[Rfam]
RNA: mir-1302 microRNA precursor family
RNA sequence: UUUUUAGUGUAAAUAUGUCUCAUGCAAUAUUUGAGACGUACUUACACUAAAA
Numbered sequence: 001u002u003u004u005u006a007g008u009g010u011a012a013a014u015a016u017g018u019c020u021c022a023u024g025c026a027a028u029a030u031u032u033g034a035g036a037c038g039u040a041c042u043u044a045c046a047c048u049a050a051a052a
Stems, first nucleotide, its partner, number of pairs: 006048007014040003018036004022031001